[Rfam]
RNA sequence: GCCAUUUUUUUUUUUUUUGAAACAGGAGCGCCUCAGUGCAAGGACGACUCUUAUCUAUCACCUUUUUUUUUUUGCU
Numbered sequence: 001g002c003c004a005u006u007u008u009u010u011u012u013u014u015u016u017u018u019g020a021a022a023c024a025g026g027a028g029c030g031c032c033u034c035a036g037u038g039c040a041a042g043g044a045c046g047a048c049u050c051u052u053a054u055c056u057a058u059c060a061c062c063u064u065u066u067u068u069u070u071u072u073u074g075c076u
Stems, first nucleotide, its partner, number of pairs: 001075002004072001028039004